[Rfam]
RNA sequence: UAAAAGGCGUUGAUUAGGAAGAGUAGUUAAUCUAUAAGCUUUCAGAGAGUGAGGUAUGGUGGAAUCUCACAGUAGAGGAUUAAUGAAAAUCACCUAUGAGCUGAGAACUGAAAGCAUGUGUUGUGAGUAAGUUUAUACGUAAUUCUGCGUUAAAGAAUAGAGCAUUAUACAGUUGACUAUUGGCAAUUUAUGUUAGACGGCUAUAAUUGAAAUUUUAGUUGUGCAUUGGCAAUUGUUAAUUUAAGUGUUUGUGCUUGAAAUUUUGUUACCAUAGGUGGUAUAGCGGAUUUAACUUCGUCCUAUUU
Numbered sequence: 001u002a003a004a005a006g007g008c009g010u011u012g013a014u015u016a017g018g019a020a021g022a023g024u025a026g027u028u029a030a031u032c033u034a035u036a037a038g039c040u041u042u043c044a045g046a047g048a049g050u051g052a053g054g055u056a057u058g059g060u061g062g063a064a065u066c067u068c069a070c071a072g073u074a075g076a077g078g079a080u081u082a083a084u085g086a087a088a089a090u091c092a093c094c095u096a097u098g099a100g101c102u103g104a105g106a107a108c109u110g111a112a113a114g115c116a117u118g119u120g121u122u123g124u125g126a127g128u129a130a131g132u133u134u135a136u137a138c139g140u141a142a143u144u145c146u147g148c149g150u151u152a153a154a155g156a157a158u159a160g161a162g163c164a165u166u167a168u169a170c171a172g173u174u175g176a177c178u179a180u181u182g183g184c185a186a187u188u189u190a191u192g193u194u195a196g197a198c199g200g201c202u203a204u205a206a207u208u209g210a211a212a213u214u215u216u217a218g219u220u221g222u223g224c225a226u227u228g229g230c231a232a233u234u235g236u237u238a239a240u241u242u243a244a245g246u247g248u249u250u251g252u253g254c255u256u257g258a259a260a261u262u263u264u265g266u267u268a269c270c271a272u273a274g275g276u277g278g279u280a281u282a283g284c285g286g287a288u289u290u291a292a293c294u295u296c297g298u299c300c301u302a303u304u305u
Stems, first nucleotide, its partner, number of pairs: 007101002015096004026084006038073003049070006105134005138149003272302004283298005
Dot-bracket structure: ......((......((((.......((((((......(((........((((((..........))))))))).....))))))........))))...))...(((((....................)))))...(((......)))..........................................................................................................................((((.......(((((......)))))))))...

A member of the RNA family "T-box leader" from Clostridium tepidiprofundi, 305 nucleotides long.
The family's RNA type in Rfam is cis-regulatory leader.
For this family Rfam cites "Interaction between the acceptor end of tRNA and the T box stimulates antitermination in the Bacillus subtilis tyrS gene: a new role for the discriminator base" (Grundy et al., J Bacteriol, 1994).
The match comes from Rfam's covariance-model search (94 bits).
The family has 48 seed sequences and 19,395 matches in Rfam 15.1.
NCBI's taxonomy places the organism under Bacteria, Bacillati, Eubacteriales, Clostridiaceae, Clostridium tepidiprofundi.
Rfam links the family to the GO term tRNA binding.
The family's consensus secondary structure is taken from published work.